[Rfam]
RNA sequence: UUCUUUCGGGUCUGUAGUUGCGGGGGCUUGCGCCCCCUAGUCCAUGGCAGAUGCGGUCGAAAGGAUCCACGUAAGCAUCGGGCUUGUCCCGUGCGAGCAUGGCGUAUCCUAGGAGUAAGACGCACCCUUCGGAGAUUGUUUUGCGGCGUGGUGCUGCACCGAAGGAGAGGGUGGAGCGGAUUGCCGCAAACCCCCGGUGCGCGAGUGUGGGGGCAAAGACUAGGUCAGCCGGAAGAA
Numbered sequence: 001u002u003c004u005u006u007c008g009g010g011u012c013u014g015u016a017g018u019u020g021c022g023g024g025g026g027c028u029u030g031c032g033c034c035c036c037c038u039a040g041u042c043c044a045u046g047g048c049a050g051a052u053g054c055g056g057u058c059g060a061a062a063g064g065a066u067c068c069a070c071g072u073a074a075g076c077a078u079c080g081g082g083c084u085u086g087u088c089c090c091g092u093g094c095g096a097g098c099a100u101g102g103c104g105u106a107u108c109c110u111a112g113g114a115g116u117a118a119g120a121c122g123c124a125c126c127c128u129u130c131g132g133a134g135a136u137u138g139u140u141u142u143g144c145g146g147c148g149u150g151g152u153g154c155u156g157c158a159c160c161g162a163a164g165g166a167g168a169g170g171g172u173g174g175a176g177c178g179g180a181u182u183g184c185c186g187c188a189a190a191c192c193c194c195c196g197g198u199g200c201g202c203g204a205g206u207g208u209g210g211g212g213g214c215a216a217a218g219a220c221u222a223g224g225u226c227a228g229c230c231g232g233a234a235g236a237a
Stems, first nucleotide, its partner, number of pairs: 001237009012228003015222005044208003047057001050108006066102002078091001080089001100215001121201005126165007169194003176187004

Record summary: raiA RNA: a 237-nucleotide sequence from Slackia piriformis. Rfam's curators put it in the seed alignment. Rfam classes the family as a riboswitch. Lineage of the source: Bacteria > Coriobacteriia > Eggerthellales > Eggerthellaceae > Slackia piriformis.